RNA sequence: AGAGGUCACAAGUUUAGGGCCAUAGCAGAAGUGCUCAUGGCACGGCCUUAUCAGAUUCCAAUUACUCUUUUAAUUCUGCU
Dot-bracket structure: ...............[.[[[[..((((((((((.......)))]]]]]....(((.(......).))).....)))))))
The record is an 80-nucleotide RNA sequence from Alligator sinensis, which matches "Mammalian CPEB3 ribozyme" in Rfam. The base pairs follow the family's consensus structure, which is taken from published work. Lineage of the source: Eukaryota > Opisthokonta > Deuterostomia > Alligatoridae > Alligator. On this family, see Salehi-Ashtiani et al., Science 2006: "A genomewide search for ribozymes reveals an HDV-like sequence in the human CPEB3 gene".